[Rfam]
RNA sequence: UGAUGUCAGGGUUCAAAGGUACAAAUCCGAUUGUGCCUGCACAAAGAGGAUUUGGAACCUGGGACCCGCUAAACACGAGCAAGUAGCGUUAUUGCGCGGAUUGCGAGUGUUUUAGAAGCGCGAAAGCUGCUGCAUGGCAGCGAAGCGAUUCGUGACAUCA
Number, nucleotide and partner (000 for none) at each position: 001u160002g159003a158004u157005g156006u155007c154008a000009g000010g066011g065012u064013u063014c000015a000016a060017a000018g058019g000020u056021a000022c054023a053024a052025a051026u050027c049028c048029g000030a000031u044032u043033g042034u041035g040036c000037c000038u000039g000040c035041a034042c033043a032044a031045a000046g000047a000048g028049g027050a026051u025052u024053u023054g022055g000056a020057a000058c018059c000060u016061g000062g000063g013064a012065c011066c010067c000068g000069c000070u000071a112072a111073a110074c109075a108076c107077g000078a000079g104080c103081a102082a101083g000084u000085a000086g097087c096088g095089u094090u000091a000092u000093u000094g089095c088096g087097c086098g000099g000100a000101u082102u081103g080104c079105g000106a000107g076108u075109g074110u073111u072112u071113u000114a000115g151116a150117a149118g000119c147120g146121c145122g000123a000124a000125a000126g141127c140128u139129g138130c137131u136132g000133c000134a000135u000136g131137g130138c129139a128140g127141c126142g000143a000144a000145g121146c120147g119148a000149u117150u116151c115152g000153u000154g007155a006156c005157a004158u003159c002160a001